This 120-nucleotide sequence from Paraburkholderia xenovorans belongs to the Rfam family "Group II catalytic intron D1-D4-2". It is one of the family's seed sequences. About the family: Group II introns are found in rRNA, tRNA and mRNA of organelles in fungi, plants and protists, and also in mRNA in bacteria.
[Rfam]
RNA sequence: GAUGGAAAGCCCUUUGGAGUCGGCGCGCAAGCGCUGACUCCAAACAGCCGUGAGCUGCCUCAGUCGGAAACGCGGCGGUGGCGAACGUUACGAUUAAAAGGCGUGAUUAAACACGUCAUG
Numbered sequence: 001g002a003u004g005g006a007a008a009g010c011c012c013u014u015u016g017g018a019g020u021c022g023g024c025g026c027g028c029a030a031g032c033g034c035u036g037a038c039u040c041c042a043a044a045c046a047g048c049c050g051u052g053a054g055c056u057g058c059c060u061c062a063g064u065c066g067g068a069a070a071c072g073c074g075g076c077g078g079u080g081g082c083g084a085a086c087g088u089u090a091c092g093a094u095u096a097a098a099a100g101g102c103g104u105g106a107u108u109a110a111a112c113a114c115g116u117c118a119u120g
Stems, first nucleotide, its partner, number of pairs: 001015002004012002016041006023034004045120002049092005054082002057079003061075001063073002100117006